[Rfam]
RNA sequence: GGUCAGUGAUGAUAAGUAAAAGGUAUGACAUCACGGCUGCCUCACUUGCUACCAAAUGAGCUCCCUGCAGGCUUUGGUUUAGAAUCAUGCUUUAGUUCUGCAUUGAUUUGGUUUCAAAAUCUGCUGACAUUUCAGGAUAAUCACAGUUCUGUGUAUUCUGGAGACUGAGUUUGCAUGGCCAUUUAAGUUAUCCUACAUAAGUUUCAUGGAUGGAGUUUUUGGUGCAAGUGAUUGGCAAUGCAUGAUCUCAAGUUUUCAAGCUGAGACC
Numbered sequence: 001g002g003u004c005a006g007u008g009a010u011g012a013u014a015a016g017u018a019a020a021a022g023g024u025a026u027g028a029c030a031u032c033a034c035g036g037c038u039g040c041c042u043c044a045c046u047u048g049c050u051a052c053c054a055a056a057u058g059a060g061c062u063c064c065c066u067g068c069a070g071g072c073u074u075u076g077g078u079u080u081a082g083a084a085u086c087a088u089g090c091u092u093u094a095g096u097u098c099u100g101c102a103u104u105g106a107u108u109u110g111g112u113u114u115c116a117a118a119a120u121c122u123g124c125u126g127a128c129a130u131u132u133c134a135g136g137a138u139a140a141u142c143a144c145a146g147u148u149c150u151g152u153g154u155a156u157u158c159u160g161g162a163g164a165c166u167g168a169g170u171u172u173g174c175a176u177g178g179c180c181a182u183u184u185a186a187g188u189u190a191u192c193c194u195a196c197a198u199a200a201g202u203u204u205c206a207u208g209g210a211u212g213g214a215g216u217u218u219u220u221g222g223u224g225c226a227a228g229u230g231a232u233u234g235g236c237a238a239u240g241c242a243u244g245a246u247c248u249c250a251a252g253u254u255u256u257c258a259a260g261c262u263g264a265g266a267c268c
Stems, first nucleotide, its partner, number of pairs: 001268004035248002038245001042231008061215004065126001067124005081112001082109006090100001136192006150177006158169002

Shown here is a 268-nucleotide RNA sequence from Hymenochirus boettgeri, a member of the family "Small Cajal body specific RNA 6". NCBI's taxonomy places the organism under Eukaryota, Bilateria, Craniata, Sarcopterygii, Hymenochirus. A search with the family's covariance model found it, with a score of 86 bits. Rfam links the family to the GO terms RNA processing and nucleolus. The family's RNA type in Rfam is small Cajal body RNA. U88 is small Cajal body specific RNA (scaRNA). scaRNAs are a novel class of small nuclear RNAs which localise to the Cajal bodies. U88 is found associated with both fibrillarin and Gar1p and co-localises with coilin in Cajal bodies.